[Rfam]
RNA sequence: UUGCAGGAGCCUCCCGGGCUAGUCUGAUUAUAAAUUCAUGAGGAAUUAAGCCCCAAAGCUCCUGCUAGAUUGGUGCCAUUCGUGUUGCAGUUCUGUCUCAAAUUUCUUCUGGCUUAACUGUGUCAAAGCAAUGUCUAGAUUU
Number, nucleotide and partner (000 for none) at each position: 001u000002u000003g065004c064005a063006g062007g061008a060009g059010c058011c000012u000013c000014c000015c000016g053017g052018g051019c050020u049021a047022g046023u044024c043025u042026g000027a000028u000029u000030a000031u000032a000033a000034a000035u000036u000037c000038a000039u000040g000041a000042g025043g024044a023045a000046u022047u021048a000049a020050g019051c018052c017053c016054c000055a000056a000057a000058g010059c009060u008061c007062c006063u005064g004065c003066u000067a000068g000069a000070u000071u000072g000073g000074u000075g135076c000077c133078a132079u131080u130081c000082g000083u125084g124085u000086u122087g121088c120089a119090g118091u117092u000093c000094u000095g113096u112097c111098u000099c000100a000101a000102a000103u000104u000105u000106c000107u000108u000109c000110u000111g097112g096113c095114u000115u000116a000117a091118c090119u089120g088121u087122g086123u000124c084125a083126a000127a000128g000129c000130a080131a079132u078133g077134u000135c075136u000137a000138g000139a000140u000141u000142u000
Shown here is a 142-nucleotide sequence from Brassica carinata, a member of the family "small nucleolar RNA snoR134". The family's consensus secondary structure was predicted with RNAalifold. By type it is an H/ACA-box small nucleolar RNA. The literature on the family includes a 2009 paper in Nucleic Acids Res by Chen and Wu, "Mining small RNA sequencing data: a new approach to identify small nucleolar RNAs in Arabidopsis". Lineage of the source: Eukaryota > Embryophyta > Magnoliopsida > Brassicaceae > Brassica. Rfam 15.1 lists 792 matches to the family in 228 species.